[Rfam]
The family of this 117-nucleotide RNA sequence from Limnochorda pilosa is "SAM riboswitch aptamer (S box leader)".
Lineage of the source: Bacteria > Bacillati > Limnochordia > Limnochordales > Limnochorda.
RNA sequence: CCUGCAUCCAGAGUGGCGGAGGGACUGGCCCGAUGAAGCCCGGCAACCGGCGGCUCCAUUUGCCGUGCGGUGCCAAAUCCUGCAGGACCUUUUCGUAGGGGUCCUGGGAGAUGCGGG
Numbered sequence: 001c002c003u004g005c006a007u008c009c010a011g012a013g014u015g016g017c018g019g020a021g022g023g024a025c026u027g028g029c030c031c032g033a034u035g036a037a038g039c040c041c042g043g044c045a046a047c048c049g050g051c052g053g054c055u056c057c058a059u060u061u062g063c064c065g066u067g068c069g070g071u072g073c074c075a076a077a078u079c080c081u082g083c084a085g086g087a088c089c090u091u092u093u094c095g096u097a098g099g100g101g102u103c104c105u106g107g108g109a110g111a112u113g114c115g116g117g
Stems, first nucleotide, its partner, number of pairs: 001117008013041001015040003021031003025082001027080002042074004047070002050066004078109001083106009